[Rfam]
RNA sequence: UCAAUGUGAAGUCUGGCAAUCACAAUAAAAACGGGGCACAUCCGAAAAGCCAUAGUAGUAGGGAUCAA
Numbered sequence: 001u002c003a004a005u006g007u008g009a010a011g012u013c014u015g016g017c018a019a020u021c022a023c024a025a026u027a028a029a030a031a032c033g034g035g036g037c038a039c040a041u042c043c044g045a046a047a048a049g050c051c052a053u054a055g056u057a058g059u060a061g062g063g064a065u066c067a068a
Stems, first nucleotide, its partner, number of pairs: 006023004035051003042063002
RNA: DUF805 RNA
Organism: Flavipsychrobacter stenotrophus